RNA sequence: AGUUGCAAGUUCAAGGCCAUAGCAGAAGUGCUCAUGGUGCAGCCUGUCAAAUUCCAAUGAAAUCUGUGAAUUUUGCU
Numbered sequence: 001a002g003u004u005g006c007a008a009g010u011u012c013a014a015g016g017c018c019a020u021a022g023c024a025g026a027a028g029u030g031c032u033c034a035u036g037g038u039g040c041a042g043c044c045u046g047u048c049a050a051a052u053u054c055c056a057a058u059g060a061a062a063u064c065u066g067u068g069a070a071u072u073u074u075g076c077u
Base pairs, nucleotide, nucleotide: 015044016043017042021077022076023075024074025073026072027071028040029039030038048066049065051063052062053061
Dot-bracket structure: ..............[[[...((((((((((.......))).]]]...((.(((.......))).))....)))))))